PhotoRC-II RNA: a 97-nucleotide RNA.
RNA sequence: UUACCUUAUAUUUGCUCCCGCUAACCAAGACCUAUGGGAGGGUAAAUUACGUCUUUCAUAUCCUGUAGUGAAGGGAUUACAGGAAAUAAAGUAUCGC
Dot-bracket structure: ..............(((((.......[[[[[....)))))..........]]]]]......(((((((........)))))))..............
By type it is a cis-regulatory element. Pairs were carried over by alignment from the consensus structure, which is taken from published work.